[Rfam]
A member of the RNA family "MIR5269 microRNA precursor family" from Medicago truncatula, 80 nucleotides long. Rfam links the family to the GO terms miRNA-mediated post-transcriptional gene silencing and RISC complex. NCBI's taxonomy places the organism under Eukaryota, rosids, Papilionoideae, Hologalegina, Medicago. A search with the family's covariance model found it, with a score of 71 bits.

RNA sequence: UUGGAUGAAAUCAAUGUAGGUACUACACUUUGGAAAUGGAACCCACAUAAAGUGGUGAGGCAUACAUUGAUUUCCCUCAA
Numbered sequence: 001u002u003g004g005a006u007g008a009a010a011u012c013a014a015u016g017u018a019g020g021u022a023c024u025a026c027a028c029u030u031u032g033g034a035a036a037u038g039g040a041a042c043c044c045a046c047a048u049a050a051a052g053u054g055g056u057g058a059g060g061c062a063u064a065c066a067u068u069g070a071u072u073u074c075c076c077u078c079a080a
Stems, first nucleotide, its partner, number of pairs: 001080004007074012024057002026054007